[Rfam]
RNA sequence: CUGUACUCUACAGUGCAUGUGUCUCCAGUGUGAGUAGGCGACUGGAGAUGCGGCGCUGUCGGAAUAAC
Dot-bracket structure: ......(((((((.((.((((((((((((...........)))))))))))))).)))).))).....
Numbered sequence: 001c002u003g004u005a006c007u008c009u010a011c012a013g014u015g016c017a018u019g020u021g022u023c024u025c026c027a028g029u030g031u032g033a034g035u036a037g038g039c040g041a042c043u044g045g046a047g048a049u050g051c052g053g054c055g056c057u058g059u060c061g062g063a064a065u066a067a068c
Stems, first nucleotide, its partner, number of pairs: 007063003010059004015054002018052012
The family of this 68-nucleotide RNA sequence from Rhinopomastus cyanomelas is "mir-139 microRNA precursor family". For this family Rfam cites "Conservation of small RNA pathways in platypus" (Murchison et al., Genome Res, 2008).